Shown here is a 113-nucleotide sequence from Parapusillimonas granuli, a member of the family "Glycine riboswitch aptamer". The source organism's lineage runs through Bacteria, Pseudomonadota, Betaproteobacteria, Alcaligenaceae and Parapusillimonas. It scores 50 bits against the family's covariance model.
[Rfam]
RNA sequence: UGGCAGCAUUCUGGAGAGACUCAGGCCACCGCUUACCAGCCCGGCCCGGGCGCCGAAGGUGAACACCCCGUGAUCAGGGGGCAACUCUCAGGCAAAAGGACAGAAGGGCGAUG
Numbered sequence: 001u002g003g004c005a006g007c008a009u010u011c012u013g014g015a016g017a018g019a020c021u022c023a024g025g026c027c028a029c030c031g032c033u034u035a036c037c038a039g040c041c042c043g044g045c046c047c048g049g050g051c052g053c054c055g056a057a058g059g060u061g062a063a064c065a066c067c068c069c070g071u072g073a074u075c076a077g078g079g080g081g082c083a084a085c086u087c088u089c090a091g092g093c094a095a096a097a098g099g100a101c102a103g104a105a106g107g108g109c110g111a112u113g
Stems, first nucleotide, its partner, number of pairs: 007107001009105005020050003052093003055089002059087001061085001066079003